[Rfam]
RNA sequence: GUCGCGCUCUGACUAGGAUAUGAGACGACGAGAACAUUGCUUUUUUAAAAGACUUGUACCCGUAAUCUUCAUAAUCCGAGUCAGGGCUAGCU
Numbered sequence: 001g002u003c004g005c006g007c008u009c010u011g012a013c014u015a016g017g018a019u020a021u022g023a024g025a026c027g028a029c030g031a032g033a034a035c036a037u038u039g040c041u042u043u044u045u046u047a048a049a050a051g052a053c054u055u056g057u058a059c060c061c062g063u064a065a066u067c068u069u070c071a072u073a074a075u076c077c078g079a080g081u082c083a084g085g086g087c088u089a090g091c092u
Stems, first nucleotide, its partner, number of pairs: 003090001006087009016077003019073006029062002032059001034057003
RNA: mir-54 microRNA precursor family
Organism: Caenorhabditis elegans